A member of the RNA family "tRNA" from Collybiopsis confluens, 74 nucleotides long. It is annotated as a transfer RNA. A search with the family's covariance model found it, with a score of 52 bits. Rfam's curators write: Transfer RNA (tRNA) molecules are approximately 80 nucleotides in length.

RNA sequence: GGCAAGAUAGUGUAAUAGGAUAGCACAAGAGUCUCAUUAACUCUAGGUUUAAGGUUCAAAUCCUAAUUUUGUCA
Numbered sequence: 001g002g003c004a005a006g007a008u009a010g011u012g013u014a015a016u017a018g019g020a021u022a023g024c025a026c027a028a029g030a031g032u033c034u035c036a037u038u039a040a041c042u043c044u045a046g047g048u049u050u051a052a053g054g055u056u057c058a059a060a061u062c063c064u065a066a067u068u069u070u071g072u073c074a
Stems, first nucleotide, its partner, number of pairs: 001073007010026004028044005049066003053063002
Lineage of the source: Eukaryota > Agaricomycetes > Agaricales > Marasmiineae > Collybiopsis.